Nucleotides: 393
Base pairs, nucleotide, nucleotide: 001389002388003387004386005385006384007383008382010380012335013334014333015332016331017330018329020061021060023058024057025056026055027054028053066377067376068375070374071373072372073371074370075236076235077234078233082270083269084268085267087232088231089230090229091228092106093105094104095103096102107121108119109118110117111116122227123226127225128224129221130220131219144166145165146162147161148160149159150158151157152156174192175191176190177189178188179187194216195214196213197212198211199210200209201208202207240292241291242290250283251282252281253280254279255278262274263273264272265271299318300317301316302315303314304313305312306311
Number, partner (000 for none) and nucleotide at each position: 001389a002388a003387a004386g005385a006384a007383g008382g009000a010380c011000a012335g013334a014333u015332g016331g017330c018329c019000g020061c021060c022000g023058g024057u025056c026055c027054c028053c029000c030000c031000u032000u033000u034000g035000c036000c037000g038000c039000u040000c041000g042000c043000g044000g045000c046000a047000u048000c049000u050000g051000u052000g053028g054027g055026g056025g057024a058023c059000g060021g061020g062000a063000g064000g065000a066377a067376a068375g069000u070374c071373c072372g073371g074370g075236c076235u077234c078233c079000a080000c081000a082270g083269g084268g085267c086000a087232g088231g089230a090229u091228g092106g093105u094104c095103c096102c097000u098000a099000a100000c101000g102096g103095g104094g105093a106092c107121c108119g109118g110117g111116g112000g113000c114000g115000a116111c117110c118109c119108c120000a121107g122227g123226g124000a125000a126000a127225g128224u129221g130220c131219c132000a133000c134000a135000g136000a137000g138000a139000g140000a141000a142000g143000a144166c145165c146162g147161c148160c149159c150158g151157c152156u153000u154000c155000a156152a157151g158150c159149g160148g161147g162146u163000a164000a165145g166144g167000g168000u169000g170000a171000a172000a173000g174192g175191g176190u177189g178188a179187g180000g181000u182000a183000a184000g185000a186000g187179c188178u189177c190176a191175c192174c193000a194216g195214u196213u197212c198211c199210g200209g201208c202207g203000g204000c205000g206000a207202c208201g209200u210199c211198g212197g213196a214195a215000g216194c217000u218000c219131g220130g221129u222000a223000a224128a225127c226123c227122c228091c229090a230089u231088c232087c233078g234077g235076a236075g237000c238000a239000a240292g241291g242290c243000c244000g245000a246000a247000u248000a249000g250283a251282g252281g253280a254279g255278c256000g257000u258000u259000u260000g261000a262274g263273g264272g265271c266000g267085g268084c269083c270082c271265g272264u273263c274262c275000g276000a277000g278255g279254c280253u281252c282251c283250u284000g285000g286000g287000u288000g289000u290242g291241c292240u293000g294000c295000u296000u297000g298000a299318g300317g301316c302315c303314g304313u305312c306311g307000g308000c309000a310000a311306c312305g313304g314303c315302g316301g317300u318299c319000c320000u321000a322000g323000a324000g325000g326000a327000a328000u329018g330017g331016u332015c333014a334013u335012c336000g337000c338000c339000c340000c341000g342000c343000c344000g345000c346000g347000g348000g349000u350000a351000a352000c353000u354000u355000c356000g357000g358000c359000g360000g361000g362000g363000a364000a365000c366000a367000g368000a369000a370074c371073c372072c373071g374070g375068c376067u377066u378000a379000c380010g381000g382008c383007c384006u385005u386004c387003u388002u389001u390000g391000g392000c393000c